DUF3800-I RNA: a 131-nucleotide sequence. Actinobacteria, Firmicutes, Fusobacteria, Proteobacteria (1 example), Tenericutes (2 examples). The sequence is in the family's curated seed alignment.
RNA sequence: UUAAUAUACCAAAAGGGAAUAAUCCUUUGUUCGGUGUACAAGUAAGAUUAGAUUGAAAAAUUAAGUGUAUCUAUAAAUACACCUACUUACUUGGAAAAGAGCCAUUUAGACGGCUCUUUUUUUAUGGUAAA
Numbered sequence: 001u002u003a004a005u006a007u008a009c010c011a012a013a014a015g016g017g018a019a020u021a022a023u024c025c026u027u028u029g030u031u032c033g034g035u036g037u038a039c040a041a042g043u044a045a046g047a048u049u050a051g052a053u054u055g056a057a058a059a060a061u062u063a064a065g066u067g068u069a070u071c072u073a074u075a076a077a078u079a080c081a082c083c084u085a086c087u088u089a090c091u092u093g094g095a096a097a098a099g100a101g102c103c104a105u106u107u108a109g110a111c112g113g114c115u116c117u118u119u120u121u122u123u124a125u126g127g128u129a130a131a
Base pairs, nucleotide, nucleotide: 007036008035009034010033011030012028013027014026015025016024017023039093040092041091042090043089044088049085050084051083052061053060054059065082066081067080068079069078070077094121095120096119097118098117099116100115101114102113103112